[Rfam]
RNA sequence: CCAGAUGUCUAUCGUUUCUUACGGUAAAGAGAAGCCGGCCGUUCUGGGCCACGACGAAGCGGCUUACGCUAAAAACCGUCGUGCCGUACUGGUAUACUAAGAGAAUCAUAUGGUUAGUAACUUCAGACAUCACCUGUUG
Numbered sequence: 001c002c003a004g005a006u007g008u009c010u011a012u013c014g015u016u017u018c019u020u021a022c023g024g025u026a027a028a029g030a031g032a033a034g035c036c037g038g039c040c041g042u043u044c045u046g047g048g049c050c051a052c053g054a055c056g057a058a059g060c061g062g063c064u065u066a067c068g069c070u071a072a073a074a075a076c077c078g079u080c081g082u083g084c085c086g087u088a089c090u091g092g093u094a095u096a097c098u099a100a101g102a103g104a105a106u107c108a109u110a111u112g113g114u115u116a117g118u119a120a121c122u123u124c125a126g127a128c129a130u131c132a133c134c135u136g137u138u139g
Stems, first nucleotide, its partner, number of pairs: 001047004014035007054138001057135001059133001062130001065127001068124001075118002078115001079113005086106002089103002
Dot-bracket structure: ((((.........(((((((........)))))))........))))......(..(.(..(..(..(......((.((((((..((.((...........)).))..))))).).)).....)..)..)..).)..).
Description
CpoB/ybgF ICR thermometer: a 139-nucleotide RNA sequence from Pantoea ananatis. About the family: Imprinting control region from upstream of cpoB/ybgF (tol/pal system protein). Taxonomically the source falls in Pantoea ananatis (Bacteria, Pseudomonadati, Gammaproteobacteria, Enterobacterales).